[Rfam]
A member of the RNA family "R2 RNA element" from Hermetia illucens, 168 nucleotides long. Rfam's curators write: This family represents the 3' UTR region of the R2 retrotransposable element. This family is known to interact with the R2-encoded reverse transcriptase in a reaction known as target primed reverse transcription (TPRT). The literature on the family includes a 2004 paper in RNA by Ruschak et al., "Secondary structure models of the 3' untranslated regions of diverse R2 RNAs". Gene Ontology term of the family: regulation of reverse transcription. It is annotated as a cis-regulatory element. Rfam 15.1 lists 3,698 matches to the family in 74 species.
RNA sequence: UUAUAGCUAGGGUAGUGAGCUAAAAUUAGCUGACUCCGCCCUGUGAUGUAAUAUCGUACGGUGGUUCCACGGGGCUUGGAGGGAGUCGGGGGUGGUUUUAGUGGGUAAGAAUCCCACACGCUGGCGUGUCCAGGCCAGUGUCUUUUAAAGAUUUCUACCUCCUCAAAA
Numbered sequence: 001u002u003a004u005a006g007c008u009a010g011g012g013u014a015g016u017g018a019g020c021u022a023a024a025a026u027u028a029g030c031u032g033a034c035u036c037c038g039c040c041c042u043g044u045g046a047u048g049u050a051a052u053a054u055c056g057u058a059c060g061g062u063g064g065u066u067c068c069a070c071g072g073g074g075c076u077u078g079g080a081g082g083g084a085g086u087c088g089g090g091g092g093u094g095g096u097u098u099u100a101g102u103g104g105g106u107a108a109g110a111a112u113c114c115c116a117c118a119c120g121c122u123g124g125c126g127u128g129u130c131c132a133g134g135c136c137a138g139u140g141u142c143u144u145u146u147a148a149a150g151a152u153u154u155c156u157a158c159c160u161c162c163u164c165a166a167a168a
Stems, first nucleotide, its partner, number of pairs: 038075008076166004088162008101117005119140006